[Rfam]
RNA sequence: GUUCAAAAUAGUGAUGUCUUUUCCAAGCACAUAUCUAAUUGUUCUGUGUGGAAAAUGACUUGCUAUGUGAUUUUUGGAU
Number, nucleotide and partner (000 for none) at each position: 001g079002u078003u077004c076005a075006a073007a072008a071009u070010a000011g000012u000013g000014a000015u000016g000017u000018c000019u000020u000021u000022u000023c000024c000025a000026a000027g000028c000029a000030c000031a000032u000033a000034u000035c000036u000037a000038a000039u000040u000041g000042u000043u000044c000045u000046g000047u000048g000049u000050g000051g000052a000053a000054a000055a000056u000057g000058a000059c000060u000061u000062g000063c000064u000065a000066u000067g000068u000069g000070a009071u008072u007073u006074u000075u005076g004077g003078a002079u001
Small nucleolar RNA SNORD121A: a 79-nucleotide RNA from Gymnorhina tibicen. NCBI's taxonomy places the organism under Eukaryota, Metazoa, Deuterostomia, Telluraves, Gymnorhina. By type it is a C/D-box small nucleolar RNA. Pairs were carried over by alignment from the consensus structure, which was predicted with WAR. Gene Ontology terms of the family: RNA processing and nucleolus. The literature on the family includes a 2006 paper in Nucleic Acids Res by Yang et al., "snoSeeker: an advanced computational package for screening of guide and orphan snoRNA genes in the human genome".